[Rfam]
RNA: MIR7502 microRNA precursor family
Organism: Gossypium barbadense
RNA sequence: UGCUAAAAAUUUUAUUUAUUUUUACAAUUAAAAUUGGUCUUUGUAUGUCAAAAUGAUGAGCAUGUGACAUGCCACAUGUAACUAUUUAGUUAUUUUGUUAACAACACCAAAUUUUAACAGUAGGAAUUGAUGAAAUUUUUAAUA
Numbered sequence: 001u002g003c004u005a006a007a008a009a010u011u012u013u014a015u016u017u018a019u020u021u022u023u024a025c026a027a028u029u030a031a032a033a034u035u036g037g038u039c040u041u042u043g044u045a046u047g048u049c050a051a052a053a054u055g056a057u058g059a060g061c062a063u064g065u066g067a068c069a070u071g072c073c074a075c076a077u078g079u080a081a082c083u084a085u086u087u088a089g090u091u092a093u094u095u096u097g098u099u100a101a102c103a104a105c106a107c108c109a110a111a112u113u114u115u116a117a118c119a120g121u122a123g124g125a126a127u128u129g130a131u132g133a134a135a136u137u138u139u140u141a142a143u144a
Stems, first nucleotide, its partner, number of pairs: 002143001004141013018127008028117006